[Rfam]
RNA sequence: ACCACUGAGCCAUCUUCCCAGCCCCAAUUUUAAACUCUUUAUGUAAGAAUAUAACCACUCUUGGGCUGGGAAGGUGGCUCAGUGGU
Numbered sequence: 001a002c003c004a005c006u007g008a009g010c011c012a013u014c015u016u017c018c019c020a021g022c023c024c025c026a027a028u029u030u031u032a033a034a035c036u037c038u039u040u041a042u043g044u045a046a047g048a049a050u051a052u053a054a055c056c057a058c059u060c061u062u063g064g065g066c067u068g069g070g071a072a073g074g075u076g077g078c079u080c081a082g083u084g085g086u
Base pairs, nucleotide, nucleotide: 002085003084004083005082006081007080008079009078010077011076012075013074014073015072016071017070018069019068020067021066022065023064024063
RNA: mir-3473 microRNA precursor family
Organism: Dipodomys ordii